[Rfam]
RNA: SAM-I/IV (S-adenosyl methionine) riboswitch aptamer
RNA sequence: AAAAAGCAUGGAGAGAGGUUAAAACCUCAGCAACCUAGAAAGCUAACUAAGGUGCUUGAAUAUGUGGUUUGUAACAAAAAAUAGCUUUC
Numbered sequence: 001a002a003a004a005a006g007c008a009u010g011g012a013g014a015g016a017g018g019u020u021a022a023a024a025c026c027u028c029a030g031c032a033a034c035c036u037a038g039a040a041a042g043c044u045a046a047c048u049a050a051g052g053u054g055c056u057u058g059a060a061u062a063u064g065u066g067g068u069u070u071g072u073a074a075c076a077a078a079a080a081a082u083a084g085c086u087u088u089c
Stems, first nucleotide, its partner, number of pairs: 006065005015028005029056003034052003037048002041087002044084001067075003